Bacteroidete tryptophan peptide leader RNA: a 126-nucleotide RNA from Flavobacterium micromati. It scores 86 bits against the family's covariance model. Rfam classes the family as a cis-regulatory leader. Rfam links the family to the GO terms S-adenosylmethionine metabolic process and regulation of gene expression.

RNA sequence: UUGUCCCAAUAAAAUAAAAAAUGAAAACAAUUUUAAAAAAUACUUGGUGGUGGAGCAAAUUACGUCAGUCGUCGUGAACUAAGCUCCUAUAGUAUUAUUUAAAACUAUAAAUAUAAAAGGCUUGUC
Numbered sequence: 001u002u003g004u005c006c007c008a009a010u011a012a013a014a015u016a017a018a019a020a021a022u023g024a025a026a027a028c029a030a031u032u033u034u035a036a037a038a039a040a041u042a043c044u045u046g047g048u049g050g051u052g053g054a055g056c057a058a059a060u061u062a063c064g065u066c067a068g069u070c071g072u073c074g075u076g077a078a079c080u081a082a083g084c085u086c087c088u089a090u091a092g093u094a095u096u097a098u099u100u101a102a103a104a105c106u107a108u109a110a111a112u113a114u115a116a117a118a119g120g121c122u123u124g125u126c
Stems, first nucleotide, its partner, number of pairs: 036100003040095005047088001049087002052084001059080001061078001062072003